[Rfam]
Nucleotides: 265
Stems, first nucleotide, its partner, number of pairs: 001265006009058003012030004017025001019023001035055005064258007073249004079242004085236003092232002095228006103221002107218003115213004121207003124201006130192002133190005138183001140181004149174004157166003
Number, partner (000 for none) and nucleotide at each position: 001265c002264c003263g004262u005261g006260c007000u008000a009058g010057a011056c012030g013029g014028g015027g016000a017025g018000g019023u020000a021000g022000c023019g024000g025017u026000g027015c028014c029013c030012u031000g032000u033000a034000a035055c036054u037053c038052g039051c040000a041000a042000u043000c044000c045000g046000c047000u048000g049000u050000a051039g052038c053037g054036a055035g056011g057010u058009u059000g060000a061000a062000u063000u064258c065257c066256c067255g068254u069253c070252u071000g072000a073249g074248g075247u076246c077000u078000u079242g080241u081240c082239a083000c084000g085236c086235a087234g088000g089000u090000u091000c092232c093231g094000g095228c096227g097226u098225g099224u100223u101000u102000g103221g104220u105000u106000u107218c108217g109216u110000g111000u112000u113000g114000a115213u116212a117211g118210c119000a120000g121207g122206g123205u124201c125200c126199u127198c128197c129196g130192c131191a132000a133190g134189g135188g136187a137186c138183g139000c140181c141180c142179a143178u144000g145000a146000a147000c148000c149174c150173g151172g152171u153000c154000a155000g156000g157166u158165c159164c160000g161000g162000a163000a164159g165158g166157a167000a168000g169000c170000a171152g172151c173150c174149g175000u176000a177000a178143g179142u180141g181140g182000u183138c184000a185000c186137g187136u188135u189134c190133u191131u192130g193000u194000g195000u196129u197128g198127g199126a200125g201124g202000g203000u204000a205123g206122c207121c208000a209000g210118g211117c212116u213115g214000g215000a216109g217108c218107g219000a220104g221103c222000c223100g224099g225098c226097a227096c228095g229000u230000c231093c232092g233000g234087c235086u236085g237000g238000a239082u240081g241080g242079c243000a244000u245000c246076g247075a248074u249073c250000g251000g252070g253069g254068a255067c256066g257065g258064g259000u260006g261005c262004a263003c264002g265001g